RNA sequence: CUUGCACAUAAAAAACUCUUUAAGCCCUCCACUGACAAUUGGACUGCUUAAGUCGAUGUGCAGACAGUAAGUGGAGCUUGUCGCCUUCCCAGACUGGUCCUGUGUCUGUGGAAGUGAAUCGAAGCUUUGACAUUA
Numbered sequence: 001c002u003u004g005c006a007c008a009u010a011a012a013a014a015a016c017u018c019u020u021u022a023a024g025c026c027c028u029c030c031a032c033u034g035a036c037a038a039u040u041g042g043a044c045u046g047c048u049u050a051a052g053u054c055g056a057u058g059u060g061c062a063g064a065c066a067g068u069a070a071g072u073g074g075a076g077c078u079u080g081u082c083g084c085c086u087u088c089c090c091a092g093a094c095u096g097g098u099c100c101u102g103u104g105u106c107u108g109u110g111g112a113a114g115u116g117a118a119u120c121g122a123a124g125c126u127u128u129g130a131c132a133u134u135a
Base pairs, nucleotide, nucleotide: 002063003062004061005060006059007058008057009056023048024047025046028043029042030041031040073128074127075126076125077124078123079122085114086113087112088111089110090108091107092106093105094104
A member of the RNA family "Small nucleolar RNA SNORA68" from Branchiostoma lanceolatum, 135 nucleotides long. Lineage of the source: Eukaryota > Metazoa > Amphioxiformes > Branchiostomatidae > Branchiostoma. Rfam classes the family as an H/ACA-box small nucleolar RNA. From the family's description: U68 is a member of the H/ACA class of small nucleolar RNAs (snoRNAs) which act as guides in the the modification of uridines to pseudouridines.